Overview
mir-H2 microRNA precursor family: a 75-nucleotide RNA sequence from Simplexvirus humanalpha1. Gene Ontology terms of the family: miRNA-mediated post-transcriptional gene silencing and RISC complex.
RNA sequence: GCCCCAGUCGCACUCGUCCCUGGCUCAGGCCGCGAACCAAGAACAGAGUCUGUGCCGGGCGCGUGCGACGGUGGC
Numbered sequence: 001g002c003c004c005c006a007g008u009c010g011c012a013c014u015c016g017u018c019c020c021u022g023g024c025u026c027a028g029g030c031c032g033c034g035a036a037c038c039a040a041g042a043a044c045a046g047a048g049u050c051u052g053u054g055c056c057g058g059g060c061g062c063g064u065g066c067g068a069c070g071g072u073g074g075c
Stems, first nucleotide, its partner, number of pairs: 001075003005071001007069007015061005022056003026052005